[Rfam]
RNA: Selenocysteine transfer RNA
Organism: Pseudolycoriella hygida
RNA sequence: GCCCAGAUGAACAUCGAUGGUUCGGUGUGCCGGCUUCAAACCGGUAGGCGAUCAAAAGUCGCAGCGGUUCGAUUCCUCCUUCUGGGC
Numbered sequence: 001g002c003c004c005a006g007a008u009g010a011a012c013a014u015c016g017a018u019g020g021u022u023c024g025g026u027g028u029g030c031c032g033g034c035u036u037c038a039a040a041c042c043g044g045u046a047g048g049c050g051a052u053c054a055a056a057a058g059u060c061g062c063a064g065c066g067g068u069u070c071g072a073u074u075c076c077u078c079c080u081u082c083u084g085g086g087c
Base pairs, nucleotide, nucleotide: 001087002086003085004084005083006082007081009079012027013026014025015024016023017022028046029045030044031043032042033041048062049061050060051059052058064078066076067075